[Rfam]
RNA sequence: AAGGGAGCAAUCACCUCUUGUUCUAUCAAGAGUGCAUUGCUCCUUUCCGU
Numbered sequence: 001a002a003g004g005g006a007g008c009a010a011u012c013a014c015c016u017c018u019u020g021u022u023c024u025a026u027c028a029a030g031a032g033u034g035c036a037u038u039g040c041u042c043c044u045u046u047c048c049g050u
Base pairs, nucleotide, nucleotide: 001046002045003044004043005042006041007040008039009038010037011036015032016031017030018029019028020027
A member of the RNA family "Plastid-psbA-3 3UTR RNA" from Rhododendron simsii, 50 nucleotides long.
By type it is a cis-regulatory element.
NCBI's taxonomy places the organism under Eukaryota, Ericales, Ericaceae, Rhodoreae, Rhododendron.
About the family: Plastid psbA-3 is a non-coding RNA (ncRNA) present in plastids. It was identified in inverted repeat sequences in the 3 prime untranslate region (3UTR) of photosystem II quinone-binding protein (psbA).